RNA sequence: GCUGGUCUGUGAUGACUCUAAUGUUUGGAGACUGUUGGAUGACUCCUGCGGAUAUGGGGCUGAGGCCAGCA
Numbered sequence: 001g002c003u004g005g006u007c008u009g010u011g012a013u014g015a016c017u018c019u020a021a022u023g024u025u026u027g028g029a030g031a032c033u034g035u036u037g038g039a040u041g042a043c044u045c046c047u048g049c050g051g052a053u054a055u056g057g058g059g060c061u062g063a064g065g066c067c068a069g070c071a
Stems, first nucleotide, its partner, number of pairs: 001070005